[Rfam]
RNA sequence: GGGGUCCCAGAGGCCAGGCCAGGUCGGUUCAUCUGCGGGGCUCUGUGAGCCCCAUGGAUGAACUGACCUGACCUGGCCUCUGAGGUUUU
Numbered sequence: 001g002g003g004g005u006c007c008c009a010g011a012g013g014c015c016a017g018g019c020c021a022g023g024u025c026g027g028u029u030c031a032u033c034u035g036c037g038g039g040g041c042u043c044u045g046u047g048a049g050c051c052c053c054a055u056g057g058a059u060g061a062a063c064u065g066a067c068c069u070g071a072c073c074u075g076g077c078c079u080c081u082g083a084g085g086u087u088u089u
Stems, first nucleotide, its partner, number of pairs: 001089006010080003018077009027063001029061004036056002038053003